The family of this 101-nucleotide RNA from Guptibacillus hwajinpoensis is "Purine riboswitch aptamer". Riboswitches are metabolite binding domains within certain messenger RNAs that serve as precision sensors for their corresponding targets. The family's consensus secondary structure is taken from published work.
[Rfam]
RNA sequence: UUUAACCUAAAAGCUCCACCUUGUAUAAGUUCAGGAAUAUGGCCUGAACGUUUCUACUAGCUACCGAGAAUGGCUUGUCUACAAGGAAUGAUGAAUACUUC
Numbered sequence: 001u002u003u004a005a006c007c008u009a010a011a012a013g014c015u016c017c018a019c020c021u022u023g024u025a026u027a028a029g030u031u032c033a034g035g036a037a038u039a040u041g042g043c044c045u046g047a048a049c050g051u052u053u054c055u056a057c058u059a060g061c062u063a064c065c066g067a068g069a070a071u072g073g074c075u076u077g078u079c080u081a082c083a084a085g086g087a088a089u090g091a092u093g094a095a096u097a098c099u100u101c
Base pairs, nucleotide, nucleotide: 019086020085021084022083023082024081025080029049030048031047032046033045034044035043057077059075060074061073062072063071